[Rfam]
Overview:
The family of this 43-nucleotide RNA is "L31-Actinobacteria ribosomal protein leader". On this family, see Eckert and Weinberg, BMC Microbiol 2020: "Discovery of 20 novel ribosomal leader candidates in bacteria and archaea". The family's consensus secondary structure is taken from published work.
RNA sequence: GCGGUCCCGGUUCACGGCGCCUCCCGGCGGCGACCCGGCGGCC
Numbered sequence: 001g002c003g004g005u006c007c008c009g010g011u012u013c014a015c016g017g018c019g020c021c022u023c024c025c026g027g028c029g030g031c032g033a034c035c036c037g038g039c040g041g042c043c
Stems, first nucleotide, its partner, number of pairs: 003043003007038004015032002018029004